[Rfam]
RNA sequence: GAAUCACGGUUGAAACAAGAUUUAUCAUGAGAAGUCAGCAGAAGUCAUAGUACCAAGGUAGUCAUGAAUGCCUUGGGAAGGAC
Numbered sequence: 001g002a003a004u005c006a007c008g009g010u011u012g013a014a015a016c017a018a019g020a021u022u023u024a025u026c027a028u029g030a031g032a033a034g035u036c037a038g039c040a041g042a043a044g045u046c047a048u049a050g051u052a053c054c055a056a057g058g059u060a061g062u063c064a065u066g067a068a069u070g071c072c073u074u075g076g077g078a079a080g081g082a083c
Base pairs, nucleotide, nucleotide: 001022002021004020005019008016010014035042036041044083045082046081053076054075055074056073057072058071059070060069
Rfam assigns this 83-nucleotide RNA from Lutispora thermophila to the family "Group II catalytic intron D1-D4-1". The match comes from Rfam's covariance-model search (53 bits). The organism belongs to Lutispora thermophila, within Bacteria. From the family's description: Group II introns are found in rRNA, tRNA and mRNA of organelles in fungi, plants and protists, and also in mRNA in bacteria.